[Rfam]
Shown here is a 137-nucleotide RNA sequence from Perca fluviatilis, a member of the family "Small nucleolar RNA SNORA15".
Rfam describes the family as follows. ACA15 is a member of the H/ACA class of snoRNA that guide the sites of modification of uridines to pseudouridines.
The source organism's lineage runs through Eukaryota, Chordata, Euteleostomi, Ctenosquamata and Perca.
Its family is annotated with nucleolus and RNA processing in the Gene Ontology.

RNA sequence: GCAUGGCCGAAUUCUGUUCCAGCUGGUCUGUGGUGGAUACAGUCAGACACCAUGCAAAAGCCACAUCUCAUAACUGCUAAAUGACUGGAUGAGUGCUUCCCUCAGCCUCAUCCAACUGUACAGGAAUGAGUACAAUG
Number, nucleotide and partner (000 for none) at each position: 001g055002c054003a053004u052005g051006g050007c000008c000009g000010a000011a000012u000013u000014c042015u041016g040017u039018u000019c000020c000021a000022g000023c000024u000025g000026g000027u000028c000029u000030g000031u000032g000033g000034u000035g000036g000037a000038u000039a017040c016041a015042g014043u000044c000045a000046g000047a000048c000049a000050c006051c005052a004053u003054g002055c001056a000057a000058a000059a000060g000061c000062c000063a000064c000065a000066u000067c130068u129069c128070a000071u126072a000073a000074c123075u122076g121077c000078u000079a000080a000081a000082u000083g000084a000085c000086u114087g113088g112089a111090u110091g109092a108093g107094u105095g000096c000097u000098u000099c000100c000101c000102u000103c000104a000105g094106c000107c093108u092109c091110a090111u089112c088113c087114a086115a000116c000117u000118g000119u000120a000121c076122a075123g074124g000125a000126a071127u000128g069129a068130g067131u000132a000133c000134a000135a000136u000137g000